[Rfam]
RNA sequence: CCUCCGUUCUCCCCGCACAGGAGAGCGGAACGAGGCCGAAGGCGCUCUCUGCCCUGACUGCGCCGAGGCCUCCGAUCGACCGGUCCCAGGACGGGACCGUGCCCCUACCGCACACGGGGACACAUCUCCCGCCCGCAAGGCGGGACCGGCCGAUGUCAGCUCCGGGCUGCGGUGCCGGACAGGUUGAGGGUCCUGUCCCGGCGC
Numbered sequence: 001c002c003u004c005c006g007u008u009c010u011c012c013c014c015g016c017a018c019a020g021g022a023g024a025g026c027g028g029a030a031c032g033a034g035g036c037c038g039a040a041g042g043c044g045c046u047c048u049c050u051g052c053c054c055u056g057a058c059u060g061c062g063c064c065g066a067g068g069c070c071u072c073c074g075a076u077c078g079a080c081c082g083g084u085c086c087c088a089g090g091a092c093g094g095g096a097c098c099g100u101g102c103c104c105c106u107a108c109c110g111c112a113c114a115c116g117g118g119g120a121c122a123c124a125u126c127u128c129c130c131g132c133c134c135g136c137a138a139g140g141c142g143g144g145a146c147c148g149g150c151c152g153a154u155g156u157c158a159g160c161u162c163c164g165g166g167c168u169g170c171g172g173u174g175c176c177g178g179a180c181a182g183g184u185u186g187a188g189g190g191u192c193c194u195g196u197c198c199c200g201g202c203g204c
Stems, first nucleotide, its partner, number of pairs: 003029004008024005032072004037068001041064002044061002046057002076153003080149003085144003159173003163169002177198007
Overview
Streptomyces sRNA scr5239: a 204-nucleotide RNA from Streptomyces inhibens. Rfam classes the family as a small RNA. The family's consensus secondary structure is taken from published work. Lineage of the source: Bacteria > Actinomycetota > Actinomycetes > Kitasatosporales > Streptomyces. The match comes from Rfam's covariance-model search (105 bits). A reference for the family is Vockenhuber and Suess (2012), "Streptomyces coelicolor sRNA scr5239 inhibits agarase expression by direct base pairing to the dagA coding region", Microbiology.